[Rfam]
RNA sequence: GCAAGGUGAGGUAGUAGGUUGUAUAGUUUGUGAGAUGGAGCCAAUUCUACUCAUGUGAUAACUAUACAGUCUCUUACCUUCCUUGA
Numbered sequence: 001g002c003a004a005g006g007u008g009a010g011g012u013a014g015u016a017g018g019u020u021g022u023a024u025a026g027u028u029u030g031u032g033a034g035a036u037g038g039a040g041c042c043a044a045u046u047c048u049a050c051u052c053a054u055g056u057g058a059u060a061a062c063u064a065u066a067c068a069g070u071c072u073c074u075u076a077c078c079u080u081c082c083u084u085g086a
Stems, first nucleotide, its partner, number of pairs: 002085005008080007016072012032047003050057001
RNA: let-7 microRNA precursor family
Organism: Nothobranchius furzeri